Notes: Rfam assigns this 148-nucleotide RNA sequence from Pseudaminobacter soli to the family "FMN riboswitch aptamer (RFN element)". It scores 116 bits against the family's covariance model.
RNA sequence: UUAAGUUCUCAGGGCGGGGUGAAACUCCCCACCGGCGGUAAGAGCGAAAGCUUGAGCCCGCGAGCGCUUUCCGGAUUUCCCGGAAAGGUCAGCAGAUCCGGUUGAAUUCCGGAGCCGACGGUCAUAGUCCGGAUGAAAGAGAACGAAC
Numbered sequence: 001u002u003a004a005g006u007u008c009u010c011a012g013g014g015c016g017g018g019g020u021g022a023a024a025c026u027c028c029c030c031a032c033c034g035g036c037g038g039u040a041a042g043a044g045c046g047a048a049a050g051c052u053u054g055a056g057c058c059c060g061c062g063a064g065c066g067c068u069u070u071c072c073g074g075a076u077u078u079c080c081c082g083g084a085a086a087g088g089u090c091a092g093c094a095g096a097u098c099c100g101g102u103u104g105a106a107u108u109c110c111g112g113a114g115c116c117g118a119c120g121g122u123c124a125u126a127g128u129c130c131g132g133a134u135g136a137a138a139g140a141g142a143a144c145g146a147a148c
Base pairs, nucleotide, nucleotide: 005144006143007142008141009140010139017029018028019027031128032127033117034116035061036060037059038058056115057114064093065092097113098112099111100110101109119131120130121129